The family of this 70-nucleotide sequence from Castor canadensis is "mir-290 microRNA precursor family". The literature on the family includes a 2004 paper in Dev Biol by Suh et al., "Human embryonic stem cells express a unique set of microRNAs". Rfam 15.1 lists 565 matches to the family in 128 species. Its Rfam clan is "mir-290 clan". Gene Ontology terms of the family: miRNA-mediated post-transcriptional gene silencing and RISC complex.

[Rfam]
RNA sequence: GUGGCACUCAAACUGUGGGGGCACUUUUUGUUAAAUCUGAAAAAAAGUGCCGCCAGUUUUUGAGUGUUAC
Numbered sequence: 001g002u003g004g005c006a007c008u009c010a011a012a013c014u015g016u017g018g019g020g021g022c023a024c025u026u027u028u029u030g031u032u033a034a035a036u037c038u039g040a041a042a043a044a045a046a047g048u049g050c051c052g053c054c055a056g057u058u059u060u061u062g063a064g065u066g067u068u069a070c
Base pairs, nucleotide, nucleotide: 004067005066006065007064008063009062010061011060012059016055017054018053020051021050022049023048024047025046027044028043029042